[Rfam]
RNA sequence: UGUUGCGGCCCGCCUCUGGCCGGCCGCAUCUUGGACGUUUCCUCCCUAAACUUGGGCGGUGCUUCGGCACCGCCUUUUUUUUGUCCGCGU
Numbered sequence: 001u002g003u004u005g006c007g008g009c010c011c012g013c014c015u016c017u018g019g020c021c022g023g024c025c026g027c028a029u030c031u032u033g034g035a036c037g038u039u040u041c042c043u044c045c046c047u048a049a050a051c052u053u054g055g056g057c058g059g060u061g062c063u064u065c066g067g068c069a070c071c072g073c074c075u076u077u078u079u080u081u082u083g084u085c086c087g088c089g090u
Stems, first nucleotide, its partner, number of pairs: 008036001010034002054075009
Annotation:
A member of the RNA family "Makes More Granules Regulator RNA (mmgR)" from Lichenicoccus roseus, 90 nucleotides long. A reference for the family is Lagares et al. (2017), "Regulation of Polyhydroxybutyrate Accumulation in Sinorhizobium meliloti by the Trans-Encoded Small RNA MmgR", J Bacteriol. It scores 54 bits against the family's covariance model. The base pairs follow the family's consensus structure.